[Rfam]
RNA: U4 spliceosomal RNA
RNA sequence: AGCUUUGCGCAGGUGCGGUACCGUAGCCAAUGAGGUUUUUCCGAGGCGCGGUUAUUGCUAGUUGAAAACUAUUACCAAUACCCCGCGACUGUACCCCUUUCCUGUGGGUGCUAAUCGCAAUUUUUUCACACCUCCACGGAGG
Numbered sequence: 001a002g003c004u005u006u007g008c009g010c011a012g013g014u015g016c017g018g019u020a021c022c023g024u025a026g027c028c029a030a031u032g033a034g035g036u037u038u039u040u041c042c043g044a045g046g047c048g049c050g051g052u053u054a055u056u057g058c059u060a061g062u063u064g065a066a067a068a069c070u071a072u073u074a075c076c077a078a079u080a081c082c083c084c085g086c087g088a089c090u091g092u093a094c095c096c097c098u099u100u101c102c103u104g105u106g107g108g109u110g111c112u113a114a115u116c117g118c119a120a121u122u123u124u125u126u127c128a129c130a131c132c133u134c135c136a137c138g139g140a141g142g
Stems, first nucleotide, its partner, number of pairs: 020052005026047003034042002085118003090113002092110005097104001131142004